[Rfam]
RNA sequence: CGGACAUGGGUCCGUUGGAAUGUAACCUAAAGGUUGAACCGUAAA
Numbered sequence: 001c002g003g004a005c006a007u008g009g010g011u012c013c014g015u016u017g018g019a020a021u022g023u024a025a026c027c028u029a030a031a032g033g034u035u036g037a038a039c040c041g042u043a044a045a
Stems, first nucleotide, its partner, number of pairs: 001014005016041003024035004